[Rfam]
RNA sequence: GGGAGCGUCCUCGGAGCGUUUUCGCUGACAUCGGUACCUGACACGGCCGGUGCAG
Numbered sequence: 001g002g003g004a005g006c007g008u009c010c011u012c013g014g015a016g017c018g019u020u021u022u023c024g025c026u027g028a029c030a031u032c033g034g035u036a037c038c039u040g041a042c043a044c045g046g047c048c049g050g051u052g053c054a055g
Base pairs, nucleotide, nucleotide: 001023002022003021004020005019006018007017008016025055026054027053029052030051031050032049033048034047035046
A member of the RNA family "L17-Actino-Proteobacteria ribosomal protein leader" from Streptomyces sp. PT12, 55 nucleotides long. The base pairs follow the family's consensus structure, which is taken from published work. NCBI's taxonomy places the organism under Bacteria, Bacillati, Actinomycetota, Streptomycetaceae, Streptomyces.